[Rfam]
RNA sequence: UUCAAUUAUUGAAAUAUUGUGAGUAAUAUAUUCUAAUCCCAACUUUUGUCCAGUUGGGCGGCGGAAGAACGUUCUCUUUGAGGGCAUUGAAACGGUAUGGAUGCGGGAUCGCAAAGCAGCUUGAAGAAACGAAAACGCCGCCCGGAAAAGGCGGCGUUUUGAUCUUGAU
Numbered sequence: 001u002u003c004a005a006u007u008a009u010u011g012a013a014a015u016a017u018u019g020u021g022a023g024u025a026a027u028a029u030a031u032u033c034u035a036a037u038c039c040c041a042a043c044u045u046u047u048g049u050c051c052a053g054u055u056g057g058g059c060g061g062c063g064g065a066a067g068a069a070c071g072u073u074c075u076c077u078u079u080g081a082g083g084g085c086a087u088u089g090a091a092a093c094g095g096u097a098u099g100g101a102u103g104c105g106g107g108a109u110c111g112c113a114a115a116g117c118a119g120c121u122u123g124a125a126g127a128a129a130c131g132a133a134a135a136c137g138c139c140g141c142c143c144g145g146a147a148a149a150g151g152c153g154g155c156g157u158u159u160u161g162a163u164c165u166u167g168a169u
Stems, first nucleotide, its partner, number of pairs: 001013005016037004021033005038058007070131004075127008084117002087114003093106001095104003132160011
Dot-bracket structure: (((((...)))))..((((.(((((...)))))))))(((((((.......)))))))...........((((.((((((((.((.(((...(.(((....))).).....))).))..))))))))))))(((((((((((.......))))))))))).........

Rfam assigns this 169-nucleotide sequence from Brucella suis to the family "Brucella sRNA 0602". Rfam's curators put it in the seed alignment. By type it is a small RNA. The family's consensus secondary structure was predicted with RNAfold. From the family's description: Highly induced in stationary phase and modulate the intracellular survival.